Shown here is a 73-nucleotide RNA sequence from Medicago truncatula, a member of the family "MIR5272 microRNA precursor family". Gene Ontology terms of the family: miRNA-mediated post-transcriptional gene silencing and RISC complex. The base pairs follow the family's consensus structure, which was predicted with RNAalifold. Rfam 15.1 lists 271 matches to the family in 4 species.
RNA sequence: UUUGAUGUGAAUGGAUUAUGUUUAGAUAUACUCAUUUAAAAGUGAUUCUUUCGAGUUGAUGUUGUUUGGAUAG
Numbered sequence: 001u002u003u004g005a006u007g008u009g010a011a012u013g014g015a016u017u018a019u020g021u022u023u024a025g026a027u028a029u030a031c032u033c034a035u036u037u038a039a040a041a042g043u044g045a046u047u048c049u050u051u052c053g054a055g056u057u058g059a060u061g062u063u064g065u066u067u068g069g070a071u072a073g
Base pairs, nucleotide, nucleotide: 011060012059014057015056016055017054020052025047026046027045029044030043031042032041